[Rfam]
RNA sequence: GGGGGGAGAGCUGGAUCUUGGGCUGUGUCCCCGGCGCCCUGGGCUCCGGGGCCUGCGCUGCUGGAAUCGCGCUCCCGGGGCUGCGCAGCCGCCU
Numbered sequence: 001g002g003g004g005g006g007a008g009a010g011c012u013g014g015a016u017c018u019u020g021g022g023c024u025g026u027g028u029c030c031c032c033g034g035c036g037c038c039c040u041g042g043g044c045u046c047c048g049g050g051g052c053c054u055g056c057g058c059u060g061c062u063g064g065a066a067u068c069g070c071g072c073u074c075c076c077g078g079g080g081c082u083g084c085g086c087a088g089c090c091g092c093c094u
Base pairs, nucleotide, nucleotide: 001094002093003092005090006089010086011085012083013082014081017078018077020075021074022073024071025070026069027068028065029064031063032060033059034058035057036056037055041053043052044051045050
Rfam assigns this 94-nucleotide RNA from Canis lupus to the family "mir-8799 microRNA precursor family". Its family is annotated with miRNA-mediated post-transcriptional gene silencing and RISC complex in the Gene Ontology. Its Rfam clan is "mir-8791 microRNA precursor clan". The family's consensus secondary structure was predicted with RNAalifold. The source organism's lineage runs through Eukaryota, Deuterostomia, Theria, Boreoeutheria and Canis lupus.